[Rfam]
RNA sequence: ACGACCUUACUUGAACAGGAUCUGUUCUAUAGGCUCGUACCUCUGUAUCCUUAAGUUCUAAGGAGACAGGAUUCCAAGUCUGGUUGAUGAACUGAGGCUGUGUGAUCAGAGCGUGAUUAUUGGUCUGGGUUACUGAAUAUCGGCUAACCUCGAUCGCAGAGGAUCGUUCCCAGUUCGCCUUGUCUUGCUGGGAUGGUCACACAGUUGUCUGACAGACU
Numbered sequence: 001a002c003g004a005c006c007u008u009a010c011u012u013g014a015a016c017a018g019g020a021u022c023u024g025u026u027c028u029a030u031a032g033g034c035u036c037g038u039a040c041c042u043c044u045g046u047a048u049c050c051u052u053a054a055g056u057u058c059u060a061a062g063g064a065g066a067c068a069g070g071a072u073u074c075c076a077a078g079u080c081u082g083g084u085u086g087a088u089g090a091a092c093u094g095a096g097g098c099u100g101u102g103u104g105a106u107c108a109g110a111g112c113g114u115g116a117u118u119a120u121u122g123g124u125c126u127g128g129g130u131u132a133c134u135g136a137a138u139a140u141c142g143g144c145u146a147a148c149c150u151c152g153a154u155c156g157c158a159g160a161g162g163a164u165c166g167u168u169c170c171c172a173g174u175u176c177g178c179c180u181u182g183u184c185u186u187g188c189u190g191g192g193a194u195g196g197u198c199a200c201a202c203a204g205u206u207g208u209c210u211g212a213c214a215g216a217c218u
Base pairs, nucleotide, nucleotide: 001038002037003035005033006032007031013027014026015025016024017023018022043069044068045067046066048064049063050062051061052060053059078217079216080215081214082213097205098204099203100202101201102200103199104198105197106196107195108194110168111167112166113165121156122155123154124153125152127150128149129148130147131146132145134143170191171190172189173188174187177184